[Rfam]
RNA sequence: CUUUCAGUAGAUUUCAAAAUAAUUUAUCGACUGAAAU
Numbered sequence: 001c002u003u004u005c006a007g008u009a010g011a012u013u014u015c016a017a018a019a020u021a022a023u024u025u026a027u028c029g030a031c032u033g034a035a036a037u
Stems, first nucleotide, its partner, number of pairs: 005033004010028003